[Rfam]
RNA: HDV ribozyme from F. prausnitzii
Organism: Rodentolepis nana
RNA sequence: GGCGUGCGAUAGACAUACCUCCACGUGGUGCACCCUGGGCAACGUAUACUUAUGCGGCAAAAAAGUCUAU
Numbered sequence: 001g002g003c004g005u006g007c008g009a010u011a012g013a014c015a016u017a018c019c020u021c022c023a024c025g026u027g028g029u030g031c032a033c034c035c036u037g038g039g040c041a042a043c044g045u046a047u048a049c050u051u052a053u054g055c056g057g058c059a060a061a062a063a064a065g066u067c068u069a070u
Stems, first nucleotide, its partner, number of pairs: 001036002004033004017029003043056005